[Rfam]
RNA sequence: CCUCCGGUUCUUUUCAGAACCACACAUACUCACCAGAGAGUAUCCU
Numbered sequence: 001c002c003u004c005c006g007g008u009u010c011u012u013u014u015c016a017g018a019a020c021c022a023c024a025c026a027u028a029c030u031c032a033c034c035a036g037a038g039a040g041u042a043u044c045c046u
Stems, first nucleotide, its partner, number of pairs: 006021006
Histone 3' UTR stem-loop: a 46-nucleotide RNA sequence from Acanthaster planci. The match comes from Rfam's covariance-model search (35 bits). Rfam describes the family as follows. The mRNAs of metazoan histone genes lack a poly-A tail. 3' end processing occurs at a site between a highly conserved stem-loop (modelled by this family) and a purine rich region around 20 nts downstream (the histone downstream element, or HDE). Lineage of the source: Eukaryota > Eleutherozoa > Valvatida > Acanthasteridae > Acanthaster.